[Rfam]
RNA sequence: GGCUGGUCUGAUGGUAGUGGAUUAUCAGAACUUAUUAACAUUGGUGUCACUAAAGUUGGUAUAUAGCCCCCCACCGCUAAAUUUGACUGGAAAG
Numbered sequence: 001g002g003c004u005g006g007u008c009u010g011a012u013g014g015u016a017g018u019g020g021a022u023u024a025u026c027a028g029a030a031c032u033u034a035u036u037a038a039c040a041u042u043g044g045u046g047u048c049a050c051u052a053a054a055g056u057u058g059g060u061a062u063a064u065a066g067c068c069c070c071c072c073a074c075c076g077c078u079a080a081a082u083u084u085g086a087c088u089g090g091a092a093a094g
Stems, first nucleotide, its partner, number of pairs: 003090006010084002015079001017074004033061003037057002

Shown here is a 94-nucleotide RNA sequence from Prolemur simus, a member of the family "Y RNA". Pairs were carried over by alignment from the consensus structure, which is taken from published work. By type it is a non-coding RNA gene. The organism belongs to Prolemur, within Eukaryota. The match comes from Rfam's covariance-model search (43 bits).